The family of this 370-nucleotide RNA from Desulfosarcina alkanivorans is "Group II catalytic intron D1-D4-6".
For this family Rfam cites "The ins and outs of group II introns" (Bonen and Vogel, Trends Genet, 2001).
Its family is annotated with Group II intron splicing in the Gene Ontology.
Group II introns are found in rRNA, tRNA and mRNA of organelles in fungi, plants and protists, and also in mRNA in bacteria.
[Rfam]
RNA sequence: UGAUGGCUUUUUGUAAGGGUUAGCCACCCACCCGUAUCGAGCCUUGGGUCCAUGGCGGAGAUGCUUUUUGACUAUUGUAAGUGCAGGACGUCGAGAUAACUCGGCUGGAAACGAGCCGCGACCCGGGAUCUACCGGUGCCAUUCGCGGAGGUCUCACCCCACUGAAUAAGCAAUGAGAAGGGGCAUCGAACAAGAUGGGCCAAACGUAGGCAGAGAAUCUUGCAGGCCGUAGGGGAGACCGCGCUCUCUGAAUUGCUGGUACAGCUUCGAAAAAGCAAUCGAGGACGCCGAGGAUUUUAACGGGCGCCGAAGGCAACAUAGAAGCAUCCGCUUUGGCGAGGAUGUGGAGGUCCACCGGAGUCAUCAGGCC
Number, nucleotide and partner (000 for none) at each position: 001u000002g000003a000004u000005g000006g000007c000008u000009u000010u000011u034012u000013g032014u000015a000016a000017g029018g028019g027020u026021u339022a000023g337024c336025c000026a020027c019028c018029c017030a000031c000032c013033c000034g011035u000036a000037u214038c213039g000040a000041g211042c210043c209044u208045u206046g205047g201048g200049u199050c198051c197052a196053u195054g000055g000056c000057g191058g000059a000060g000061a000062u000063g000064c000065u000066u000067u000068u000069u000070g000071a000072c000073u000074a000075u000076u000077g000078u000079a000080a000081g000082u000083g000084c000085a000086g000087g000088a000089c000090g000091u000092c000093g000094a000095g000096a000097u000098a000099a000100c000101u000102c000103g000104g000105c000106u000107g000108g000109a000110a000111a000112c000113g000114a000115g000116c000117c000118g000119c000120g000121a000122c000123c000124c000125g000126g000127g000128a000129u000130c000131u000132a000133c000134c000135g000136g000137u000138g000139c000140c000141a000142u000143u000144c000145g000146c000147g000148g000149a000150g000151g000152u000153c000154u000155c000156a000157c000158c000159c000160c000161a000162c000163u000164g000165a000166a000167u000168a000169a000170g000171c000172a000173a000174u000175g000176a000177g000178a000179a000180g000181g000182g000183g000184c000185a000186u000187c000188g000189a000190a000191c057192a000193a000194g000195a053196u052197g051198g050199g049200c048201c047202a000203a000204a000205c046206g045207u000208a044209g043210g042211c041212a000213g038214a037215g000216a000217a000218u000219c000220u000221u000222g000223c000224a000225g000226g000227c000228c000229g000230u000231a000232g000233g000234g000235g000236a000237g000238a000239c000240c000241g000242c000243g000244c000245u000246c000247u000248c000249u000250g000251a000252a000253u000254u000255g000256c000257u000258g000259g000260u000261a364262c000263a000264g361265c360266u359267u358268c357269g356270a000271a000272a000273a000274a000275g000276c000277a000278a000279u000280c000281g355282a000283g353284g352285a351286c350287g314288c313289c312290g000291a000292g308293g307294a000295u000296u000297u000298u000299a000300a000301c000302g000303g000304g000305c000306g000307c293308c292309g000310a000311a000312g289313g288314c287315a000316a000317c000318a000319u349320a000321g000322a000323a000324g345325c344326a343327u342328c341329c340330g000331c000332u000333u000334u000335g000336g024337c023338g000339a021340g329341g328342a327343u326344g325345u324346g000347g000348a000349g319350g286351u285352c284353c283354a000355c281356c269357g268358g267359a266360g265361u264362c000363a000364u261365c000366a000367g000368g000369c000370c000

A search with the family's covariance model found it, with a score of 82 bits. Taxonomically the source falls in Desulfosarcina (Bacteria, Thermodesulfobacteriota, Desulfobacterales, Desulfosarcinaceae).